[Rfam]
RNA: mir-317 microRNA precursor family
Organism: Rhipicephalus microplus
RNA sequence: GGCCCUGCCCGGCAGUGUACCACCCUGGGUUCCCACUUGCGUAUGACUUGUGUGAACACAGCUGGUGGUAUAUCAGUCGGUCUGGGUCA
Numbered sequence: 001g002g003c004c005c006u007g008c009c010c011g012g013c014a015g016u017g018u019a020c021c022a023c024c025c026u027g028g029g030u031u032c033c034c035a036c037u038u039g040c041g042u043a044u045g046a047c048u049u050g051u052g053u054g055a056a057c058a059c060a061g062c063u064g065g066u067g068g069u070a071u072a073u074c075a076g077u078c079g080g081u082c083u084g085g086g087u088c089a
Stems, first nucleotide, its partner, number of pairs: 008080002011077001015074001016072002019069002022066003025061003029057001031055002